[Rfam]
Nucleotides: 076
Base pairs, nucleotide, nucleotide: 001076002075003074004073
Number, partner (000 for none) and nucleotide at each position: 001076g002075u003074c004073c005000u006000c007000u008000g009000a010000u011000c012000g013000a014000c015000u016000u017000g018000u019000c020000g021000u022000u023000a024000g025000u026000g027000c028000c029000a030000c031000c032000u033000g034000u035000c036000u037000g038000g039000u040000g041000g042000c043000c044000g045000g046000a047000a048000c049000c050000c051000a052000u053000g054000a055000u056000g057000g058000a059000a060000c061000c062000g063000a064000g065000g066000a067000u068000c069000u070000g071000a072000a073004g074003g075002g076001c